[Rfam]
RNA: Vault RNA
Organism: Conger conger
RNA sequence: GCGUCGGCUUAGCUCAGUGGUUACUUCGUUGUCGCCACUUCGUCAUACUCUACCUUCCCCGGAGGGUCGAACCACGGGCGCUGUCCGGCGUUUUG
Number, nucleotide and partner (000 for none) at each position: 001g000002c090003g089004u088005c087006g086007g085008c000009u000010u000011a000012g079013c078014u077015c076016a000017g075018u074019g073020g072021u000022u000023a000024c000025u071026u070027c069028g068029u000030u000031g000032u000033c000034g000035c000036c000037a000038c000039u000040u000041c000042g000043u000044c000045a000046u000047a000048c000049u000050c000051u000052a000053c000054c000055u000056u000057c000058c000059c000060c000061g000062g000063a000064g000065g000066g000067u000068c028069g027070a026071a025072c020073c019074a018075c017076g015077g014078g013079c012080g000081c000082u000083g000084u000085c007086c006087g005088g004089c003090g002091u000092u000093u000094u000095g000